This 117-nucleotide RNA sequence from Pseudomonas saudiphocaensis belongs to the Rfam family "Pseudomon-groES RNA".
It scores 92 bits against the family's covariance model.
It is annotated as a cis-regulatory element.
The source organism's lineage runs through Bacteria, Pseudomonadati, Pseudomonadota, Pseudomonadaceae and Pseudomonas.
[Rfam]
RNA sequence: GUAGCCGACACCGCAAGGUCGCUGUCGCAUUUUGACAGUCCGUUUUUCUGCGCUCCGCAUUGCGGGGCGCAACCGGCAACGCCGGAAUUUGCCAACCCGCCGAUGGCAUUCAUCGGC
Number, nucleotide and partner (000 for none) at each position: 001g000002u000003a000004g000005c000006c000007g000008a000009c000010a019011c018012c017013g000014c000015a000016a000017g012018g011019u010020c000021g039022c038023u037024g036025u035026c034027g000028c000029a000030u000031u000032u000033u000034g026035a025036c024037a023038g022039u021040c000041c000042g000043u000044u000045u000046u000047u000048c000049u071050g070051c069052g068053c067054u066055c065056c064057g063058c000059a000060u000061u000062g000063c057064g056065g055066g054067g053068c052069g051070c050071a049072a000073c085074c084075g083076g082077c000078a000079a000080c000081g000082c076083c075084g074085g073086a000087a000088u000089u000090u000091g000092c000093c000094a000095a000096c000097c000098c000099g117100c116101c115102g114103a113104u112105g000106g000107c000108a000109u000110u000111c000112a104113u103114c102115g101116g100117c099